[Rfam]
RNA sequence: GGCUGGUUCAAGUGCAGCGGUGUUUACAACUCAUUGAUCAUAACCAGUUACAGAUUUCUUUGUUCCAUCUCCACUCCCGCUGCUUCAGUUGACUGGCCUAAA
Numbered sequence: 001g002g003c004u005g006g007u008u009c010a011a012g013u014g015c016a017g018c019g020g021u022g023u024u025u026a027c028a029a030c031u032c033a034u035u036g037a038u039c040a041u042a043a044c045c046a047g048u049u050a051c052a053g054a055u056u057u058c059u060u061u062g063u064u065c066c067a068u069c070u071c072c073a074c075u076c077c078c079g080c081u082g083c084u085u086c087a088g089u090u091g092a093c094u095g096g097c098c099u100a101a102a
Stems, first nucleotide, its partner, number of pairs: 001098008010090002014086001016081005022076001028064003033059001

A member of the RNA family "Y RNA" from Pongo abelii, 102 nucleotides long. A search with the family's covariance model found it, with a score of 63 bits. The family's RNA type in Rfam is non-coding RNA gene. Pairs were carried over by alignment from the consensus structure, which is taken from published work.